[Rfam]
A member of the RNA family "RNase MRP" from Sarcoptes scabiei, 329 nucleotides long. Pairs were carried over by alignment from the consensus structure, which is taken from published work. NCBI's taxonomy places the organism under Eukaryota, Eumetazoa, Bilateria, Sarcoptiformes, Sarcoptes. By type it is a ribozyme.
RNA sequence: AGUUGUUGGUAAAGACUCGCUUCGAAGAUCGUGAGAUGGCAUUUCGCUCAAAUCACGAAUUCUUCGUGGAAAGUCCUCGGUCAUUUCGGUGUUUCGGUAGCCAGAAGUACCCGAGCAAUCAUUGAAACUUCUCGUGAAGUCAAUCGAAUCGAAAGAUACAAGAGCUUUUGUCUGAGAUGGAUUAGAUUCCUGAGAUAGAAUGUUUCUCUUUUCUUCGAUUCUCUUGACUUUGAGGCAAAUAUUUGCGUUUGACUGAAAUCAUCCUACAGUAAUGCGAGUAACGCGGUCAGAAUACGCGUUAACCAAACGAGGCUUAUUCUGCCAAUAAC
Numbered sequence: 001a002g003u004u005g006u007u008g009g010u011a012a013a014g015a016c017u018c019g020c021u022u023c024g025a026a027g028a029u030c031g032u033g034a035g036a037u038g039g040c041a042u043u044u045c046g047c048u049c050a051a052a053u054c055a056c057g058a059a060u061u062c063u064u065c066g067u068g069g070a071a072a073g074u075c076c077u078c079g080g081u082c083a084u085u086u087c088g089g090u091g092u093u094u095c096g097g098u099a100g101c102c103a104g105a106a107g108u109a110c111c112c113g114a115g116c117a118a119u120c121a122u123u124g125a126a127a128c129u130u131c132u133c134g135u136g137a138a139g140u141c142a143a144u145c146g147a148a149u150c151g152a153a154a155g156a157u158a159c160a161a162g163a164g165c166u167u168u169u170g171u172c173u174g175a176g177a178u179g180g181a182u183u184a185g186a187u188u189c190c191u192g193a194g195a196u197a198g199a200a201u202g203u204u205u206c207u208c209u210u211u212u213c214u215u216c217g218a219u220u221c222u223c224u225u226g227a228c229u230u231u232g233a234g235g236c237a238a239a240u241a242u243u244u245g246c247g248u249u250u251g252a253c254u255g256a257a258a259u260c261a262u263c264c265u266a267c268a269g270u271a272a273u274g275c276g277a278g279u280a281a282c283g284c285g286g287u288c289a290g291a292a293u294a295c296g297c298g299u300u301a302a303c304c305a306a307a308c309g310a311g312g313c314u315u316a317u318u319c320u321g322c323c324a325a326u327a328a329c
Stems, first nucleotide, its partner, number of pairs: 002329010015279006023066006071315003075312004096111004127140005143219003155212002158209001160207001169197004179190003281299005